[Rfam]
RNA: Small nucleolar RNA snoR8a
RNA sequence: UGAGGUGCGAUGAUUAUAAAGAUAAUUCCUCGUUCUGACUCGCUAUUGCCAAUGGCAUGACAGACUCAUUUUACACCCAUAGAAUAUGAGCACCU
Numbered sequence: 001u002g003a004g005g006u007g008c009g010a011u012g013a014u015u016a017u018a019a020a021g022a023u024a025a026u027u028c029c030u031c032g033u034u035c036u037g038a039c040u041c042g043c044u045a046u047u048g049c050c051a052a053u054g055g056c057a058u059g060a061c062a063g064a065c066u067c068a069u070u071u072u073a074c075a076c077c078c079a080u081a082g083a084a085u086a087u088g089a090g091c092a093c094c095u
Stems, first nucleotide, its partner, number of pairs: 003095002006092002